The record is a 585-nucleotide part of an RNA from Firmicutes bacterium AF12-30, which matches "Bacterial small subunit ribosomal RNA" in Rfam. A search with the family's covariance model found it, with a score of 1575 bits. The family is grouped with related families in Rfam's "SSU clan".
RNA sequence: UGACGGGGACCCGCACAAGCGGUGGAGCAUGUGGUUUAAUUCGAAGCAACGCGAAGAACCUUACCUGGUCUUGACAUCCUUCUGACCGGUCCUUAACCGGACCUUUCCUUCGGGACAGGAGUGACAGGUGGUGCAUGGUUGUCGUCAGCUCGUGUCGUGAGAUGUUGGGUUAAGUCCCGCAACGAGCGCAACCCCUAUCUUUAGUAGCCAGCAUUUCAGGUGGGCACUCUAGAGAGACUGCCAGGGAUAACCUGGAGGAAGGUGGGGACGACGUCAAAUCAUCAUGCCCCUUAUGACCAGGGCUACACACGUGCUACAAUGGCGUAAACAGAGGGAAGCAGCCUCGUGAGAGUGAGCAAAUCCCAAAAAUAACGUCUCAGUUCGGAUUGUAGUCUGCAACUCGACUACAUGAAGCUGGAAUCGCUAGUAAUCGCGAAUCAGAAUGUCGCGGUGAAUACGUUCCCGGGUCUUGUACACACCGCCCGUCACACCAUGGGAGUCAGUAACGCCCGAAGUCAGUGACCCAACCGUAAGGAGGGAGCUGCCGAAGGCGGGACCGAUAACUGGGGUGAAGUCGUAACAAGG
Numbered sequence: 001u002g003a004c005g006g007g008g009a010c011c012c013g014c015a016c017a018a019g020c021g022g023u024g025g026a027g028c029a030u031g032u033g034g035u036u037u038a039a040u041u042c043g044a045a046g047c048a049a050c051g052c053g054a055a056g057a058a059c060c061u062u063a064c065c066u067g068g069u070c071u072u073g074a075c076a077u078c079c080u081u082c083u084g085a086c087c088g089g090u091c092c093u094u095a096a097c098c099g100g101a102c103c104u105u106u107c108c109u110u111c112g113g114g115a116c117a118g119g120a121g122u123g124a125c126a127g128g129u130g131g132u133g134c135a136u137g138g139u140u141g142u143c144g145u146c147a148g149c150u151c152g153u154g155u156c157g158u159g160a161g162a163u164g165u166u167g168g169g170u171u172a173a174g175u176c177c178c179g180c181a182a183c184g185a186g187c188g189c190a191a192c193c194c195c196u197a198u199c200u201u202u203a204g205u206a207g208c209c210a211g212c213a214u215u216u217c218a219g220g221u222g223g224g225c226a227c228u229c230u231a232g233a234g235a236g237a238c239u240g241c242c243a244g245g246g247a248u249a250a251c252c253u254g255g256a257g258g259a260a261g262g263u264g265g266g267g268a269c270g271a272c273g274u275c276a277a278a279u280c281a282u283c284a285u286g287c288c289c290c291u292u293a294u295g296a297c298c299a300g301g302g303c304u305a306c307a308c309a310c311g312u313g314c315u316a317c318a319a320u321g322g323c324g325u326a327a328a329c330a331g332a333g334g335g336a337a338g339c340a341g342c343c344u345c346g347u348g349a350g351a352g353u354g355a356g357c358a359a360a361u362c363c364c365a366a367a368a369a370u371a372a373c374g375u376c377u378c379a380g381u382u383c384g385g386a387u388u389g390u391a392g393u394c395u396g397c398a399a400c401u402c403g404a405c406u407a408c409a410u411g412a413a414g415c416u417g418g419a420a421u422c423g424c425u426a427g428u429a430a431u432c433g434c435g436a437a438u439c440a441g442a443a444u445g446u447c448g449c450g451g452u453g454a455a456u457a458c459g460u461u462c463c464c465g466g467g468u469c470u471u472g473u474a475c476a477c478a479c480c481g482c483c484c485g486u487c488a489c490a491c492c493a494u495g496g497g498a499g500u501c502a503g504u505a506a507c508g509c510c511c512g513a514a515g516u517c518a519g520u521g522a523c524c525c526a527a528c529c530g531u532a533a534g535g536a537g538g539g540a541g542c543u544g545c546c547g548a549a550g551g552c553g554g555g556a557c558c559g560a561u562a563a564c565u566g567g568g569g570u571g572a573a574g575u576c577g578u579a580a581c582a583a584g585g
Stems, first nucleotide, its partner, number of pairs: 001476002003473003007470007015460002019424005024317001026315008034306002040055004064301007077124002079121005088103005106115003127290002130288004136284002138279003141275001143273002148187006154163003166179004193267004198235007208224002212222003238258002241255005321376005327370001333364003338357002343352003383414001388409007430452007479584001481581001484577002489571004494566003499561003503557002507553004515546001517544004523539003528535002